[Rfam]
RNA sequence: CUUACCGAGAGUUCCUUGGCAUUCUGUCCACCUCCAUGCCAAUCUUGCAGGAAGCCUCUCCAAUCUGUUGUUUUUUGGAGGUGGGCAUACUGCCAAUGGAGCUGUGUAGG
Numbered sequence: 001c002u003u004a005c006c007g008a009g010a011g012u013u014c015c016u017u018g019g020c021a022u023u024c025u026g027u028c029c030a031c032c033u034c035c036a037u038g039c040c041a042a043u044c045u046u047g048c049a050g051g052a053a054g055c056c057u058c059u060c061c062a063a064u065c066u067g068u069u070g071u072u073u074u075u076u077g078g079a080g081g082u083g084g085g086c087a088u089a090c091u092g093c094c095a096a097u098g099g100a101g102c103u104g105u106g107u108a109g110g
Stems, first nucleotide, its partner, number of pairs: 013100001016096006025087011